[Rfam]
Nucleotides: 202
Base pairs, nucleotide, nucleotide: 001119002118003117005115016105017104018103020101021100022099026042027041028040029039030038043086044085045084046083047082048081049080
Number, partner (000 for none) and nucleotide at each position: 001119g002118g003117u004000g005115g006000c007000u008000c009000a010000c011000a012000c013000c014000g015000g016105u017104g018103c019000u020101u021100c022099g023000g024000a025000c026042a027041g028040c029039g030038g031000u032000u033000c034000g035000a036000u037000u038030c039029c040028g041027c042026u043086c044085a045084g046083c047082u048081c049080c050000a051000u052000u053000u054000c055000a056000c057000c058000c059000g060000c061000c062000u063000u064000c065000c066000a067000g068000c069000g070000g071000g072000u073000u074000c075000a076000u077000c078000c079000a080049g081048g082047g083046g084045c085044u086043g087000c088000a089000a090000u091000g092000g093000u094000u095000u096000c097000g098000a099022c100021g101020g102000g103018g104017u105016a106000g107000u108000a109000g110000g111000a112000g113000g114000g115005u116000g117003a118002c119001u120000g121000a122000a123000g124000c125000c126000u127000g128000c129000u130000c131000g132000g133000u134000a135000a136000g137000a138000g139000c140000a141000a142000a143000u144000c145000c146000g147000u148000a149000a150000c151000a152000g153000c154000g155000a156000a157000c158000a159000a160000c161000a162000u163000c164000g165000u166000u167000g168000c169000u170000u171000u172000c173000u174000c175000c176000c177000g178000u179000c180000a181000g182000c183000c184000c185000g186000c187000c188000c189000c190000u191000g192000u193000g194000g195000c196000c197000g198000c199000c200000u201000g202000a
Rfam assigns this 202-nucleotide RNA from Synechococcus sp. Cruz CV-v-12 to the family "permuted transfer-messenger RNA".
By type it is a non-coding RNA gene.
The family's consensus secondary structure is taken from published work.
NCBI's taxonomy places the organism under Bacteria, Bacillati, Synechococcales, Synechococcaceae, Synechococcus.
Rfam's curators write: Bacterial tmRNA, also known as 10Sa RNA or SsrA, is named for its dual tRNA and mRNA-like properties.